RNA: Bacillus sRNA ncr1575
RNA sequence: GAAGAAUUAAAUGAGAGGACUGAUGGGUGGACAAUGAAAAAUUAAUCUUAUUUUAAACGUUUGAAAUGAAAUAAUUUUGAUUUCAACCAGGAAUAAAUAGGAUUAGUCUGCCCAUUUAUAAUCGAGCGUUUCUAUUUUACAUAAUAAGUAGAUUUAUCCCAUCUAAACGGGAAGUAACACUCCCUCCUCCAAGCUUCUGGAUAAACAAAGAAGUUAGGUGGGAGAUUAACUGCUCAUUAGUGGGGGAUGAAGGAAAGCCUUCGCUGAUGGAAGUCUUUUUAUUUGUUAUGUAAAGGCAUGGCUAAUCCUUCCAAUGAUAUUGGGAGGAUUUUUUC
Numbered sequence: 001g002a003a004g005a006a007u008u009a010a011a012u013g014a015g016a017g018g019a020c021u022g023a024u025g026g027g028u029g030g031a032c033a034a035u036g037a038a039a040a041a042u043u044a045a046u047c048u049u050a051u052u053u054u055a056a057a058c059g060u061u062u063g064a065a066a067u068g069a070a071a072u073a074a075u076u077u078u079g080a081u082u083u084c085a086a087c088c089a090g091g092a093a094u095a096a097a098u099a100g101g102a103u104u105a106g107u108c109u110g111c112c113c114a115u116u117u118a119u120a121a122u123c124g125a126g127c128g129u130u131u132c133u134a135u136u137u138u139a140c141a142u143a144a145u146a147a148g149u150a151g152a153u154u155u156a157u158c159c160c161a162u163c164u165a166a167a168c169g170g171g172a173a174g175u176a177a178c179a180c181u182c183c184c185u186c187c188u189c190c191a192a193g194c195u196u197c198u199g200g201a202u203a204a205a206c207a208a209a210g211a212a213g214u215u216a217g218g219u220g221g222g223a224g225a226u227u228a229a230c231u232g233c234u235c236a237u238u239a240g241u242g243g244g245g246g247a248u249g250a251a252g253g254a255a256a257g258c259c260u261u262c263g264c265u266g267a268u269g270g271a272a273g274u275c276u277u278u279u280u281a282u283u284u285g286u287u288a289u290g291u292a293a294a295g296g297c298a299u300g301g302c303u304a305a306u307c308c309u310u311c312c313a314a315u316g317a318u319a320u321u322g323g324g325a326g327g328a329u330u331u332u333u334u335c
Base pairs, nucleotide, nucleotide: 016117024114025113026112027111030108031107032106043105044104045103046102047101048100049099050098051097052096053095059088061086062085063084064083065082066081067080128283134277304330305329306328307327308326309325310324311323312322313321314320